[Rfam]
This 106-nucleotide RNA belongs to the Rfam family "RT-5 RNA".
By type it is a small RNA.
Pairs were carried over by alignment from the consensus structure, which is taken from published work.

RNA sequence: AUGCGUCUGCGAAGGGCGAAGCGCGGUUUUGUAAAAAGGCUUUGCAGACAGCCGUGCCGUGUUCAGUCUUGUACAUUAAGCUAAAAGCUUAAAUUGAAAGCCGUUU
Dot-bracket structure: ....(((((((.[[[.[...[[[[[[.[.........[[[[.)))))))]]]]..]]]]]]]...].]]].....((((((.....))))))..............